[Rfam]
RNA sequence: GGCCGUCGCAUCCAUCACUACGGAUCGUCCGGCACGUACCUGCCGGUGAAGGAGAAGAAAU
Number, nucleotide and partner (000 for none) at each position: 001g000002g000003c000004c000005g000006u000007c000008g000009c000010a000011u053012c052013c051014a000015u049016c048017a047018c000019u000020a000021c000022g000023g000024a000025u000026c000027g000028u000029c046030c045031g044032g043033c042034a041035c000036g000037u000038a000039c000040c000041u034042g033043c032044c031045g030046g029047u017048g016049a015050a000051g013052g012053a011054g000055a000056a000057g000058a000059a000060a000061u000
msiK RNA: a 61-nucleotide RNA sequence from Microbacterium sp. Root53. Lineage of the source: Bacteria > Bacillati > Actinomycetota > Microbacteriaceae > Microbacterium. By type it is a cis-regulatory element.